The family of this 75-nucleotide RNA sequence from Alligator mississippiensis is "Mammalian CPEB3 ribozyme". The family's consensus secondary structure is taken from published work. The mammalian CPEB3 ribozyme is a self cleaving RNA located in the second intron of the CPEB3 gene which belongs to a family of genes regulating messenger RNA polyadenylation. Rfam links the family to the GO term RNA nuclease activity. Lineage of the source: Eukaryota > Gnathostomata > Sauropsida > Archosauria > Alligator.

RNA sequence: UCACAAGUUCAAGGCCACAGCAGAAGCGUUCACAGUACAGCCCAUCAGAUUCAAAUGAAAUCUGUAAAUUCUGCU
Numbered sequence: 001u002c003a004c005a006a007g008u009u010c011a012a013g014g015c016c017a018c019a020g021c022a023g024a025a026g027c028g029u030u031c032a033c034a035g036u037a038c039a040g041c042c043c044a045u046c047a048g049a050u051u052c053a054a055a056u057g058a059a060a061u062c063u064g065u066a067a068a069u070u071c072u073g074c075u
Base pairs, nucleotide, nucleotide: 013042014041015040019075020074021073022072023071024070025069026038028036046064047063048062049061050060051059